[Rfam]
RNA sequence: AUGAAUAUGCAUUGCAGCAUUGGCAUGUAUCUUGAAAAGUAGGGCUCAUAUGGAGUGCAAGAAGAUGAGUUACUCUUUGUUAUGCCAUCUCUUCUCAUCCAUUCAAAUAGUUUGAUUUUGACAUUAGCCAUUUUCGGAUAAUGUCAAAACAAACCGGCAAGUCACAAAAAGGCGAAUUGAAGGAGACUCUUUUGAGUUCC
Numbered sequence: 001a002u003g004a005a006u007a008u009g010c011a012u013u014g015c016a017g018c019a020u021u022g023g024c025a026u027g028u029a030u031c032u033u034g035a036a037a038a039g040u041a042g043g044g045c046u047c048a049u050a051u052g053g054a055g056u057g058c059a060a061g062a063a064g065a066u067g068a069g070u071u072a073c074u075c076u077u078u079g080u081u082a083u084g085c086c087a088u089c090u091c092u093u094c095u096c097a098u099c100c101a102u103u104c105a106a107a108u109a110g111u112u113u114g115a116u117u118u119u120g121a122c123a124u125u126a127g128c129c130a131u132u133u134u135c136g137g138a139u140a141a142u143g144u145c146a147a148a149a150c151a152a153a154c155c156g157g158c159a160a161g162u163c164a165c166a167a168a169a170a171g172g173c174g175a176a177u178u179g180a181a182g183g184a185g186a187c188u189c190u191u192u193u194g195a196g197u198u199c200c
Base pairs, nucleotide, nucleotide: 056097057096110154111153112152113151114150129143130142131141185198186197187196188195189194

The record is a 200-nucleotide sequence from Artemisia annua, which matches "Early nodulin 40" in Rfam. On this family, see Gultyaev and Roussis, Nucleic Acids Res 2007: "Identification of conserved secondary structures and expansion segments in enod40 RNAs reveals new enod40 homologues in plants". NCBI's taxonomy places the organism under Eukaryota, Mesangiospermae, Asteroideae, Anthemideae, Artemisia. Rfam classes the family as a non-coding RNA gene. Rfam links the family to the GO term nodulation.